[Rfam]
Overview
Rfam assigns this 83-nucleotide RNA sequence from Leifsonia sp. Root227 to the family "Fluoride riboswitch aptamer (crcB RNA motif)".
Nucleotides: 083
Base pairs, nucleotide, nucleotide: 010025011024012023013022016074017073018072020070021069054064055063056062
Number, partner (000 for none) and nucleotide at each position: 001000u002000g003000g004000g005000c006000g007000g008000a009000c010025g011024g012023c013022g014000a015000u016074g017073g018072a019000u020070c021069u022013c023012g024011c025010c026000u027000g028000g029000g030000c031000a032000g033000c034000a035000c036000c037000c038000g039000u040000g041000c042000c043000g044000u045000g046000c047000c048000c049000g050000a051000a052000c053000c054064g055063c056062g057000u058000c059000g060000u061000c062056c063055g064054c065000u066000g067000a068000u069021a070020g071000u072018u073017c074016c075000u076000a077000c078000g079000c080000u081000u082000c083000c

The base pairs follow the family's consensus structure, which is taken from published work. Lineage of the source: Bacteria > Actinomycetota > Actinomycetes > Micrococcales > Leifsonia. Rfam links the family to the GO terms positive regulation of gene expression and response to fluoride.